[Rfam]
RNA: Pseudomonas sRNA P26
Organism: Kluyvera genomosp. 3
RNA sequence: ACUUUUCUGGUUGAAGCCUGAGUAAUCAGGCCGAUGGCUGGUGACUUUUUAGUCACCAGCCA
Numbered sequence: 001a002c003u004u005u006u007c008u009g010g011u012u013g014a015a016g017c018c019u020g021a022g023u024a025a026u027c028a029g030g031c032c033g034a035u036g037g038c039u040g041g042u043g044a045c046u047u048u049u050u051a052g053u054c055a056c057c058a059g060c061c062a
Base pairs, nucleotide, nucleotide: 016031017030018029036061037060038059039058040057041056042055043054044053045052